[Rfam]
RNA: mir-9256 microRNA precursor family
RNA sequence: UUAUAUACUGAAUGGCCAGAUUAUUAUGAUCUCUGAAAGCAUAAUAAUCUGGCCAUUCAGUGUAGAC
Numbered sequence: 001u002u003a004u005a006u007a008c009u010g011a012a013u014g015g016c017c018a019g020a021u022u023a024u025u026a027u028g029a030u031c032u033c034u035g036a037a038a039g040c041a042u043a044a045u046a047a048u049c050u051g052g053c054c055a056u057u058c059a060g061u062g063u064a065g066a067c
Base pairs, nucleotide, nucleotide: 004064005063006062007061008060009059010058011057012056013055014054015053016052017051019049020048021047022046023045024044025043026042027041028040